[Rfam]
RNA sequence: CGGUCGGGAUCUGAUCGGGGCUGAUGAAGUGGAUGUGCGUAUCGAUGCCCCCGGCCGUAAGGAUCUUGCCCUCGCCCGAAAUGAUGUCGGUGGCCACACCGAUGGUGAUGUCCACGCCCAUCAUGAUGUCCAUGUUGCCGGCUUUGCCGAUCUUCAUGAUGUGACCGUCGCGCACCGCGACGUCGGCCUUGUAGAUGCCGGUCCAGUCAAUGAUCAGGACGUUGGUGAUGACCAGGUCGGGGACUUCGUCGUCACGCACCAGACGAGAGUUUUGCCCCAUGCCAUCUCGAAUCA
Numbered sequence: 001c002g003g004u005c006g007g008g009a010u011c012u013g014a015u016c017g018g019g020g021c022u023g024a025u026g027a028a029g030u031g032g033a034u035g036u037g038c039g040u041a042u043c044g045a046u047g048c049c050c051c052c053g054g055c056c057g058u059a060a061g062g063a064u065c066u067u068g069c070c071c072u073c074g075c076c077c078g079a080a081a082u083g084a085u086g087u088c089g090g091u092g093g094c095c096a097c098a099c100c101g102a103u104g105g106u107g108a109u110g111u112c113c114a115c116g117c118c119c120a121u122c123a124u125g126a127u128g129u130c131c132a133u134g135u136u137g138c139c140g141g142c143u144u145u146g147c148c149g150a151u152c153u154u155c156a157u158g159a160u161g162u163g164a165c166c167g168u169c170g171c172g173c174a175c176c177g178c179g180a181c182g183u184c185g186g187c188c189u190u191g192u193a194g195a196u197g198c199c200g201g202u203c204c205a206g207u208c209a210a211u212g213a214u215c216a217g218g219a220c221g222u223u224g225g226u227g228a229u230g231a232c233c234a235g236g237u238c239g240g241g242g243a244c245u246u247c248g249u250c251g252u253c254a255c256g257c258a259c260c261a262g263a264c265g266a267g268a269g270u271u272u273u274g275c276c277c278c279a280u281g282c283c284a285u286c287u288c289g290a291a292u293c294a
Base pairs, nucleotide, nucleotide: 002293003292005289006288007287008286009285011158012156013155014154017153018076019075023071030053031052032051035049037048038047039046040045057069058068059067078147081144083142085140090138091137092136093135094134095128100125101124103123104122105121107117163276166274167273170270171269173267175265177257178256186220188218189217190216191215201208223254224253225252228249230247231246234245235244
Dot-bracket structure: .((.(((((.((((..(((...(......(((..(.((((....))))).)))...(((.......))).)...)).(..(.(.(....((((((....((.(((.(.........)...)))))..).....))))).).).)..).....)))).)....(..((..((.(.(.((.......(.((((.........(......)......)))).)..(((..(.((..((........)))).)..))).)).......).).))..)).)........)))))..)).

Annotation: This 294-nucleotide RNA sequence from Corynebacterium tapiri belongs to the Rfam family "5' ureB small RNA". Its family is annotated with negative regulation of gene expression in the Gene Ontology. The base pairs follow the family's consensus structure, which was predicted with mfold. A reference for the family is Wen et al. (2013), "Helicobacter pylori 5'ureB-sRNA, a cis-encoded antisense small RNA, negatively regulates ureAB expression by transcription termination", J Bacteriol.